[Rfam]
RNA: c-di-GMP-I riboswitch aptamer
Organism: Lachnotalea sp. AF33-28
RNA sequence: UAGAAUAUGGGGCAAACCUGCCGAAAGGCAGCGGCGCAAAGCUAAAGGGGCUACCUGAUCUGCAUAACCGGUCAAAUGCCAGCCAGUUGCAUCU
Numbered sequence: 001u002a003g004a005a006u007a008u009g010g011g012g013c014a015a016a017c018c019u020g021c022c023g024a025a026a027g028g029c030a031g032c033g034g035c036g037c038a039a040a041g042c043u044a045a046a047g048g049g050g051c052u053a054c055c056u057g058a059u060c061u062g063c064a065u066a067a068c069c070g071g072u073c074a075a076a077u078g079c080c081a082g083c084c085a086g087u088u089g090c091a092u093c094u
Stems, first nucleotide, its partner, number of pairs: 012037002018031005040088004047084002049080003056074004